RNA sequence: AAUGAGAGAAUGACAAAUCAAAAUUUUUUUCUUGAUUUUUAGCUUUUUCCUCUUAAAAAAAAUUUAAAUUCAACUAAAAAUACUAAAAAUCAGGAGAAAAAAAUCUAGUUUCUCAUUCUCGAAUC
Numbered sequence: 001a002a003u004g005a006g007a008g009a010a011u012g013a014c015a016a017a018u019c020a021a022a023a024u025u026u027u028u029u030u031c032u033u034g035a036u037u038u039u040u041a042g043c044u045u046u047u048u049c050c051u052c053u054u055a056a057a058a059a060a061a062a063u064u065u066a067a068a069u070u071c072a073a074c075u076a077a078a079a080a081u082a083c084u085a086a087a088a089a090u091c092a093g094g095a096g097a098a099a100a101a102a103a104u105c106u107a108g109u110u111u112c113u114c115a116u117u118c119u120c121g122a123a124u125c
Stems, first nucleotide, its partner, number of pairs: 002124002006120008015111004020106001022104001024101004029096011041084002045080004